Rfam assigns this 110-nucleotide RNA from Knoellia locipacati to the family "SAM (S-adenosyl methionine) riboswitch aptamer". SAM-IV is a mRNA element that regulates gene expression via direct sensing of S-adenosylmethionine (SAM or AdoMet). SAM-IV riboswitches share conserved nucleotide positions with the previously described SAM-I riboswitches sequence analysis and molecular recognition experiments suggest that SAM-I and SAM-IV riboswitches share similar ligand binding sites, but have different scaffolds. The source organism's lineage runs through Bacteria, Actinomycetota, Actinomycetes, Intrasporangiaceae and Knoellia. Its family is annotated with regulation of gene expression and S-adenosylmethionine metabolic process in the Gene Ontology.
RNA sequence: GGUCAUGAGUCCCAGCGACAAGCCCCGGCUUGCUGGGCGGCAACCCUCCUCGCGGUGGGGUGCCCCGGGUGAAGACACGGCCCGUCGGCACCGGCGGGCAAGCGCGAUCC
Numbered sequence: 001g002g003u004c005a006u007g008a009g010u011c012c013c014a015g016c017g018a019c020a021a022g023c024c025c026c027g028g029c030u031u032g033c034u035g036g037g038c039g040g041c042a043a044c045c046c047u048c049c050u051c052g053c054g055g056u057g058g059g060g061u062g063c064c065c066c067g068g069g070u071g072a073a074g075a076c077a078c079g080g081c082c083c084g085u086c087g088g089c090a091c092c093g094g095c096g097g098g099c100a101a102g103c104g105c106g107a108u109c110c
Base pairs, nucleotide, nucleotide: 002076003075004074009038011037012036013035014034015033016032021030022029039064040063041062044060045059046058048055049054080099081098082097083096084095085094086093087092